[Rfam]
Nucleotides: 124
Base pairs, nucleotide, nucleotide: 002123003122004121061087062086063085064084065083066082
Number, partner (000 for none) and nucleotide at each position: 001000u002123g003122c004121u005000u006000a007000u008000g009000a010000u011000g012000a013000c014000a015000a016000a017000u018000u019000c020000u021000a022000a023000g024000g025000c026000u027000u028000g029000u030000u031000u032000c033000u034000c035000a036000a037000a038000a039000c040000a041000u042000u043000c044000g045000c046000a047000g048000u049000g050000g051000c052000c053000g054000c055000c056000u057000a058000a059000g060000a061087g062086c063085u064084u065083u066082c067000g068000c069000c070000c071000a072000c073000g074000c075000c076000u077000g078000g079000c080000u081000a082066g083065a084064g085063a086062g087061c088000u089000g090000u091000u092000g093000c094000u095000g096000c097000u098000c099000u100000u101000a102000u103000c104000c105000u106000u107000c108000c109000u110000u111000g112000g113000a114000u115000g116000u117000c118000u119000g120000a121004g122003g123002c124000u
Small nucleolar RNA SNORD14: a 124-nucleotide RNA sequence from Ziziphus jujuba. U14 small nucleolar RNA (U14 snoRNA) is required for early cleavages of eukaryotic precursor rRNAs. For this family Rfam cites "An essential domain in Saccharomyces cerevisiae U14 snoRNA is absent in vertebrates, but conserved in other yeasts" (Samarsky et al., Nucleic Acids Res, 1996). Lineage of the source: Eukaryota > Embryophyta > fabids > Ziziphus > Ziziphus jujuba. Rfam classes the family as a C/D-box small nucleolar RNA. The base pairs follow the family's consensus structure, which was predicted with PFOLD.